Rfam assigns this 88-nucleotide RNA sequence from Sedimenticola thiotaurini to the family "Glycine riboswitch aptamer". NCBI's taxonomy places the organism under Bacteria, Pseudomonadati, Pseudomonadota, Gammaproteobacteria, Sedimenticola.
RNA sequence: CAAAACACCGCGGGAGAGAUCGGCUCAGGCCGACGCCGAAGGCGCAAACCGUCCGGAAUCGCUCAGGCAGAAGGACCUCGGUGUGGGG
Numbered sequence: 001c002a003a004a005a006c007a008c009c010g011c012g013g014g015a016g017a018g019a020u021c022g023g024c025u026c027a028g029g030c031c032g033a034c035g036c037c038g039a040a041g042g043c044g045c046a047a048a049c050c051g052u053c054c055g056g057a058a059u060c061g062c063u064c065a066g067g068c069a070g071a072a073g074g075a076c077c078u079c080g081g082u083g084u085g086g087g088g
Base pairs, nucleotide, nucleotide: 006083007082008081009080010079012077013076020033021032022031023030035068036067037066038064039063042062043061044060049055

Overview
The family is grouped with related families in Rfam's "Glycine riboswitch clan".